[Rfam]
RNA sequence: UUAGGAGGGUGGGUAUAGAGUUUGAAAAACUCAAUAGAUUCUGUGUUGUCAUCAGCUUCUUCUCUUGUUAAAUAUUUCGGGAUUGGAGUUAAAUAACAGCACUACAUAU
Numbered sequence: 001u002u003a004g005g006a007g008g009g010u011g012g013g014u015a016u017a018g019a020g021u022u023u024g025a026a027a028a029a030c031u032c033a034a035u036a037g038a039u040u041c042u043g044u045g046u047u048g049u050c051a052u053c054a055g056c057u058u059c060u061u062c063u064c065u066u067g068u069u070a071a072a073u074a075u076u077u078c079g080g081g082a083u084u085g086g087a088g089u090u091a092a093a094u095a096a097c098a099g100c101a102c103u104a105c106a107u108a109u
Base pairs, nucleotide, nucleotide: 043102044101045100046099047098048097054090055089056088057087058086059085061082062081063080064079
The record is a 109-nucleotide sequence from Trema andersonii, which matches "Small nucleolar RNA snoR97" in Rfam. Its family is annotated with RNA processing and nucleolus in the Gene Ontology. On this family, see Marker et al., Curr Biol 2002: "Experimental RNomics: identification of 140 candidates for small non-messenger RNAs in the plant Arabidopsis thaliana". A search with the family's covariance model found it, with a score of 85 bits. Rfam classes the family as an H/ACA-box small nucleolar RNA.